U2 spliceosomal RNA: a 186-nucleotide RNA sequence from Ornithorhynchus anatinus. Its family is annotated with U2 snRNP, mRNA branch site recognition and pre-mRNA branch point binding in the Gene Ontology. Rfam 15.1 lists 71,512 matches to the family in 2,642 species. Clan: U2 clan. U2 is a small nuclear RNA (snRNA) component of the spliceosome (involved in pre-mRNA splicing).
RNA sequence: UUCACUUCUUGGCCCUUUGGCUAAGAUCAAGUGUAAUAUCUGUUCUUAUCAGUUUAUUUUCUGGUAUGUCCUCAAUUUGAGGAUGAUGUAAUAAUUGGAUUUUGGGGACUGGGUAUUGCAGGGCUUCCACCUUUCCCCCAGAGGGAAUAUUUUUUCCAGUGCUUAGUAUGGUGCCUGCCACAUAGU
Numbered sequence: 001u002u003c004a005c006u007u008c009u010u011g012g013c014c015c016u017u018u019g020g021c022u023a024a025g026a027u028c029a030a031g032u033g034u035a036a037u038a039u040c041u042g043u044u045c046u047u048a049u050c051a052g053u054u055u056a057u058u059u060u061c062u063g064g065u066a067u068g069u070c071c072u073c074a075a076u077u078u079g080a081g082g083a084u085g086a087u088g089u090a091a092u093a094a095u096u097g098g099a100u101u102u103u104g105g106g107g108a109c110u111g112g113g114u115a116u117u118g119c120a121g122g123g124c125u126u127c128c129a130c131c132u133u134u135c136c137c138c139c140a141g142a143g144g145g146a147a148u149a150u151u152u153u154u155u156c157c158a159g160u161g162c163u164u165a166g167u168a169u170g171g172u173g174c175c176u177g178c179c180a181c182a183u184a185g186u
Stems, first nucleotide, its partner, number of pairs: 007026003011022004047066006068084007112137002115134001121130001123128001141178001143176003147169005